[Rfam]
Background: The family of this 65-nucleotide RNA from Novosphingobium umbonatum is "int-alpA RNA". The base pairs follow the family's consensus structure, which is taken from published work. The family has 167 seed sequences and 577 matches in Rfam 15.1. Acidobacteria (1 example), Planctomycetes (1 example), Proteobacteria.
RNA sequence: GGCGGGGCUAGGCUGGCCAGCCAAACGCGGGAACUCCGACCCGCUGCCCCGCCAAACCUCGGAGC
Numbered sequence: 001g002g003c004g005g006g007g008c009u010a011g012g013c014u015g016g017c018c019a020g021c022c023a024a025a026c027g028c029g030g031g032a033a034c035u036c037c038g039a040c041c042c043g044c045u046g047c048c049c050c051g052c053c054a055a056a057c058c059u060c061g062g063a064g065c
Stems, first nucleotide, its partner, number of pairs: 001053008011022004027044005036064001

Taxonomically the source falls in Novosphingobium (Bacteria, Pseudomonadota, Alphaproteobacteria, Sphingomonadales).
A search with the family's covariance model found it, with a score of 40 bits.